[Rfam]
RNA sequence: ACCAGGUCCGUUGACGUGCGGUGCAGGAAGUCCUGCCGCGCGUGCCGCACCUUGCGGUGCGCCCGAGCAACCUUGGCCUUAGCCUUGCGGCAGUUCGCUGAACCGCGCUGCUUGCGGGCCAUCUGACGUUGAUAACGGGCAAGGUUGCGGGCCCUACGGUCCACGUGCCCAGCGUUGGGGAUCUUCUCCCCGGUGGACAGGACAGCGAAGUCCUUCACACCCAGGUCAACGCCGACCGCGCGGCCGGUGGCCGGGGCGUGUUCGGGCUCGUCGGUGUCCACGGCGAAGGUCACGUACCAGCGGCCGUCAGACUCGCGGGAAACGAUCACCAUCGUCGGAUUCAGAAACUGAAGAACCUCUGCACCCCAGGACCACACAUACUCAAGCGGCGCGUUGUGCUUGGCCAGCUUCAGCUUUCCAUCGCGCAGGCUAAACGCGCUGCGCGUGUAGUGCGCCGACUGACGUCCGUUACGCGACUUCAAGCGCGGGUAGCGAGCACGUCCAGCGAAGAAGUUCGCGUAGGCGGUGUGCUGGUGCCGCAACGUCUGCUGCAACGGCACCGACGACACCUCGGACAGAAACGCCAGUUCUUCGG
Number, nucleotide and partner (000 for none) at each position: 001a000002c016003c000004a000005g000006g000007u000008c000009c000010g000011u000012u000013g000014a000015c000016g002017u580018g000019c578020g000021g576022u575023g033024c000025a031026g000027g000028a000029a000030g000031u025032c000033c023034u000035g000036c000037c000038g000039c000040g068041c067042g000043u065044g064045c000046c061047g060048c059049a058050c057051c056052u000053u000054g000055c000056g051057g050058u049059g048060c047061g046062c000063c000064c044065g043066a000067g041068c040069a146070a145071c144072c143073u142074u141075g140076g000077c138078c137079u000080u000081a000082g133083c000084c131085u000086u000087g129088c128089g127090g000091c125092a124093g123094u000095u121096c000097g000098c000099u116100g115101a112102a000103c110104c000105g000106c000107g000108c000109u000110g103111c000112u101113u000114g000115c100116g099117g000118g000119c000120c000121a095122u000123c093124u092125g091126a000127c089128g088129u087130u000131g084132a000133u082134a000135a000136c000137g078138g077139g000140c075141a074142a073143g072144g071145u070146u069147g000148c000149g213150g212151g211152c210153c000154c000155u207156a000157c205158g000159g203160u202161c201162c200163a000164c000165g000166u197167g000168c195169c000170c193171a000172g191173c000174g000175u000176u000177g189178g188179g000180g186181a185182u000183c000184u000185u181186c180187u000188c178189c177190c000191c172192g000193g170194u000195g168196g000197a166198c000199a000200g162201g161202a160203c159204a000205g157206c000207g155208a000209a000210g152211u151212c150213c149214u000215u000216c000217a000218c000219a000220c574221c573222c000223a571224g570225g569226u568227c000228a000229a000230c000231g000232c265233c264234g263235a262236c000237c260238g259239c258240g257241c000242g000243g000244c254245c253246g000247g000248u000249g000250g000251c000252c000253g245254g244255g000256g000257c240258g239259u238260g237261u000262u235263c234264g233265g232266g000267c000268u000269c565270g564271u563272c562273g561274g560275u559276g558277u557278c556279c000280a000281c551282g550283g549284c548285g547286a000287a545288g000289g543290u542291c000292a000293c000294g000295u536296a535297c534298c533299a532300g531301c530302g529303g527304c526305c525306g524307u523308c522309a000310g000311a000312c000313u347314c000315g000316c000317g000318g342319g341320a340321a000322a000323c337324g336325a335326u334327c000328a000329c000330c000331a000332u000333c000334g326335u325336c324337g323338g000339a000340u320341u319342c318343a000344g000345a000346a000347a313348c000349u000350g000351a000352a000353g000354a000355a000356c000357c000358u000359c000360u000361g469362c468363a000364c000365c464366c000367c461368a460369g459370g000371a000372c000373c454374a000375c452376a451377c450378a000379u000380a446381c445382u000383c443384a000385a000386g442387c441388g440389g439390c438391g437392c436393g435394u000395u433396g000397u000398g430399c429400u428401u427402g000403g424404c423405c000406a000407g419408c000409u000410u000411c000412a000413g000414c000415u000416u000417u000418c000419c407420a000421u000422c000423g404424c403425g000426c000427a401428g400429g399430c398431u000432a000433a395434a000435c393436g392437c391438g390439c389440u388441g387442c386443g383444c000445g381446u380447g000448u000449a000450g377451u376452g375453c000454g373455c000456c000457g000458a000459c369460u368461g367462a000463c000464g365465u000466c000467c000468g362469u361470u000471a000472c000473g000474c000475g515476a514477c513478u512479u511480c000481a000482a000483g000484c000485g000486c000487g503488g502489g501490u500491a000492g499493c000494g000495a000496g000497c000498a000499c492500g490501u489502c488503c487504a000505g000506c000507g000508a000509a000510g000511a479512a478513g477514u476515u475516c000517g000518c000519g000520u000521a000522g308523g307524c306525g305526g304527u303528g000529u302530g301531c300532u299533g298534g297535u296536g295537c000538c000539g000540c000541a000542a290543c289544g000545u287546c000547u285548g284549c283550u282551g281552c000553a000554a000555c000556g278557g277558c276559a275560c274561c273562g272563a271564c270565g269566a000567c000568a226569c225570c224571u223572c000573g221574g220575a022576c021577a000578g019579a000580a017581a000582c594583g593584c000585c000586a000587g000588u000589u000590c000591u000592u000593c583594g582595g000
This 595-nucleotide RNA from Saccharopolyspora sp. ASAGF58 belongs to the Rfam family "Saccharopolyspora sRNA 389". Rfam 15.1 lists 93 matches to the family in 60 species. The literature on the family includes a 2013 paper in PLoS One by Liu et al., "Prediction and characterization of small non-coding RNAs related to secondary metabolites in Saccharopolyspora erythraea". Lineage of the source: Bacteria > Bacillati > Actinomycetes > Pseudonocardiales > Saccharopolyspora.